Fluoride riboswitch aptamer (crcB RNA motif): a 68-nucleotide sequence from Pyrinomonas methylaliphatogenes. A search with the family's covariance model found it, with a score of 50 bits.
RNA sequence: UCGCGAAAAGGCGAUGGAGUUCGCCUAAGAAGCGUCCAAGAAUUUGGACUGAUGACUCCUGCAUCGUG
Dot-bracket structure: .........[[[[..((((((]]]]........((((((....))))))....)))))).........